[Rfam]
RNA sequence: UGGAAGAAUCUGUUAAGCUCAGGAGGGAUAGCGCCCUAAGGAUAACCACGGGCUCUUUUUAUUUGGUUUUUGACUAUCAGUGGCGCUAUCCAUCCUGAGUUUUACUGGUUCUUCUU
Numbered sequence: 001u002g003g004a005a006g007a008a009u010c011u012g013u014u015a016a017g018c019u020c021a022g023g024a025g026g027g028a029u030a031g032c033g034c035c036c037u038a039a040g041g042a043u044a045a046c047c048a049c050g051g052g053c054u055c056u057u058u059u060u061a062u063u064u065g066g067u068u069u070u071u072g073a074c075u076a077u078c079a080g081u082g083g084c085g086c087u088a089u090c091c092a093u094c095c096u097g098a099g100u101u102u103u104a105c106u107g108g109u110u111c112u113u114c115u116u
Base pairs, nucleotide, nucleotide: 010107016101017100018099019098020097021096022095023094024093026091027090028089029088030087031086032085033084034083035082